[Rfam]
RNA sequence: CGACCGGGACGGCCCGGUUUCCCACAAGGGUCAGUAGCCGGGACGACCCGG
Dot-bracket structure: .(((((((....)))))))..................(((((....)))))

A member of the RNA family "Guanidine-II riboswitch aptamer (mini-ykkC)" from Ciceribacter sp. L1K22, 51 nucleotides long. Rfam describes the family as follows. Simpler in structure and has fewer highly conserved nucleotide positions than the ykkC-yxkD leader. Despite this each of its two stem-loop structures directly bind free guanidine. Therefore, mini-ykkC RNA motif represents a distinct class of guanidine-sensing RNAs. Its crystal structure was also determined.